[Rfam]
RNA: Small nucleolar RNA SNORA33
Organism: Phyllostomus discolor
Nucleotides: 126
Base pairs, nucleotide, nucleotide: 003061004060005059006058007057016043017042018041019040020039071119073118074117081106082105083104084103085102086101088099089098090097
Number, partner (000 for none) and nucleotide at each position: 001000a002000a003061g004060c005059c006058a007057g008000c009000u010000a011000a012000u013000g014000a015000g016043u017042c018041u019040g020039c021000u022000u023000a024000c025000c026000u027000g028000a029000a030000u031000g032000u033000g034000u035000a036000c037000c038000u039020g040019c041018a042017g043016a044000a045000a046000u047000u048000c049000a050000g051000a052000g053000a054000a055000u056000g057007u058006u059005g060004g061003c062000u063000a064000u065000a066000g067000u068000a069000a070000a071119g072000c073118c074117a075000c076000g077000u078000u079000a080000u081106c082105u083104u084103u085102a086101a087000a088099g089098a090097c091000c092000u093000g094000g095000a096000g097090g098089u099088c100000a101086u102085u103084a104083a105082g106081g107000u108000c109000c110000c111000u112000a113000a114000a115000a116000a117074u118073g119071c120000u121000a122000u123000a124000a125000g126000g